[Rfam]
Rfam assigns this 151-nucleotide RNA from Desulfotruncus arcticus to the family "c-di-AMP riboswitch aptamer (ydaO/yuaA leader)". The pairing is the family consensus, mapped onto this sequence.
RNA sequence: GGUAAUUUAUGGCCGAAUUUAUAUAAAUACGGGGGAUUUUUAUUUUUGGGGUGAAUCCGGAAAACUUGGAGGUGUUAAAAGGUUCAAACCGGUAGGGUACCCGCGGGCCCGAACCCGUCAGCUAACCCCGGAGGCCAUCAGGAGGGAAAUA
Numbered sequence: 001g002g003u004a005a006u007u008u009a010u011g012g013c014c015g016a017a018u019u020u021a022u023a024u025a026a027a028u029a030c031g032g033g034g035g036a037u038u039u040u041u042a043u044u045u046u047u048g049g050g051g052u053g054a055a056u057c058c059g060g061a062a063a064a065c066u067u068g069g070a071g072g073u074g075u076u077a078a079a080a081g082g083u084u085c086a087a088a089c090c091g092g093u094a095g096g097g098u099a100c101c102c103g104c105g106g107g108c109c110c111g112a113a114c115c116c117g118u119c120a121g122c123u124a125a126c127c128c129c130g131g132a133g134g135c136c137a138u139c140a141g142g143a144g145g146g147a148a149a150u151a
Stems, first nucleotide, its partner, number of pairs: 011136004019027002030130005039048001049116003057092004095110004